[Rfam]
RNA sequence: CUAUCUGCUUUUCUUCACUGUAUUUGUGCUUGUAUGUAAACUAAUCCAUAUGGUUCUUGGACAAUGAGAAAAUGUUGAGCAGAAAGCAAACGUUCCUCUCGCUAUCCAGUGUGGAAUUUCUUGUGAUGUGAUUGAACGUUGAGGAAUUAUAUUG
Numbered sequence: 001c002u003a004u005c006u007g008c009u010u011u012u013c014u015u016c017a018c019u020g021u022a023u024u025u026g027u028g029c030u031u032g033u034a035u036g037u038a039a040a041c042u043a044a045u046c047c048a049u050a051u052g053g054u055u056c057u058u059g060g061a062c063a064a065u066g067a068g069a070a071a072a073u074g075u076u077g078a079g080c081a082g083a084a085a086g087c088a089a090a091c092g093u094u095c096c097u098c099u100c101g102c103u104a105u106c107c108a109g110u111g112u113g114g115a116a117u118u119u120c121u122u123g124u125g126a127u128g129u130g131a132u133u134g135a136a137c138g139u140u141g142a143g144g145a146a147u148u149a150u151a152u153u154g
Stems, first nucleotide, its partner, number of pairs: 001082002004078002008074001009072005016066002019063002026056001028054002031050001034049003092147007100138002105136001107134003116124001
A member of the RNA family "Small nucleolar RNA snoR136" from Triticum aestivum, 154 nucleotides long. It is annotated as an H/ACA-box small nucleolar RNA. Pairs were carried over by alignment from the consensus structure, which was predicted with mfold.